[Rfam]
RNA sequence: GAGUGUCAUGUCAUCACGCCCAAUCAUUGACAAGUCAUUGUCACACCAUCACCUUUAAUGACGUGGCGAUGAUGUGUUAGUGAUUGGAUAUGAUGAUGAGAUACUCUAU
Numbered sequence: 001g002a003g004u005g006u007c008a009u010g011u012c013a014u015c016a017c018g019c020c021c022a023a024u025c026a027u028u029g030a031c032a033a034g035u036c037a038u039u040g041u042c043a044c045a046c047c048a049u050c051a052c053c054u055u056u057a058a059u060g061a062c063g064u065g066g067c068g069a070u071g072a073u074g075u076g077u078u079a080g081u082g083a084u085u086g087g088a089u090a091u092g093a094u095g096a097u098g099a100g101a102u103a104c105u106c107u108a109u
Stems, first nucleotide, its partner, number of pairs: 003104005009098008018089001020087002023084010035072010047060003

The record is a 109-nucleotide sequence from Glycine max, which matches "MIR4387 microRNA precursor family" in Rfam. The source organism's lineage runs through Eukaryota, eudicotyledons, Phaseoleae, Glycine and Glycine subgen. Soja. Pairs were carried over by alignment from the consensus structure, which was predicted with RNAalifold. The match comes from Rfam's covariance-model search (85 bits). The family is grouped with related families in Rfam's "MIR4387 microRNA precursor clan".